Rfam assigns this 135-nucleotide RNA sequence from Ornithorhynchus anatinus to the family "Small nucleolar RNA SNORA43".
From the family's description: ACA43 is a member of the H/ACA class of snoRNA that guide the sites of modification of uridines to pseudouridines.
Taxonomically the source falls in Ornithorhynchus (Eukaryota, Deuterostomia, Vertebrata, Ornithorhynchidae).
Its family is annotated with nucleolus and RNA processing in the Gene Ontology.
Pairs were carried over by alignment from the consensus structure, which was predicted with RNAfold.
The family is grouped with related families in Rfam's "SNORA17 clan".

[Rfam]
RNA sequence: GGUGCCCCUCGAGGCGUUGCAGAUGUGGCUGCGGUGCCCCAUUUGUGUCAUGAGGUGGCAGAGAGGAUAAGGCUAUGUCUACGCUCCGUGUUCAAAAAUUUGUGAGCACGCAGAAUGAUUAAUAGCCUGACAGUU
Numbered sequence: 001g002g003u004g005c006c007c008c009u010c011g012a013g014g015c016g017u018u019g020c021a022g023a024u025g026u027g028g029c030u031g032c033g034g035u036g037c038c039c040c041a042u043u044u045g046u047g048u049c050a051u052g053a054g055g056u057g058g059c060a061g062a063g064a065g066g067a068u069a070a071g072g073c074u075a076u077g078u079c080u081a082c083g084c085u086c087c088g089u090g091u092u093c094a095a096a097a098a099u100u101u102g103u104g105a106g107c108a109c110g111c112a113g114a115a116u117g118a119u120u121a122a123u124a125g126c127c128u129g130a131c132a133g134u135u
Base pairs, nucleotide, nucleotide: 003060004059005058006057007055008054009053010052019046020045021044022043071127072126073125080117081116084113085112089108090107091106092105093104094103